A member of the RNA family "mir-2483 microRNA precursor family" from Bos taurus, 80 nucleotides long. Rfam's curators put it in the seed alignment. The family's consensus secondary structure was predicted with RNAalifold.
RNA sequence: GAGUGAAAAGUUCCGUCAACCAUCCAGCUGUUUGAGGUGAUGCAAACAAACAUCUGGUUGGUUGAGAGAAUUUUUUACUU
Numbered sequence: 001g002a003g004u005g006a007a008a009a010g011u012u013c014c015g016u017c018a019a020c021c022a023u024c025c026a027g028c029u030g031u032u033u034g035a036g037g038u039g040a041u042g043c044a045a046a047c048a049a050a051c052a053u054c055u056g057g058u059u060g061g062u063u064g065a066g067a068g069a070a071u072u073u074u075u076u077a078c079u080u
Stems, first nucleotide, its partner, number of pairs: 001080013016065007024057004029052006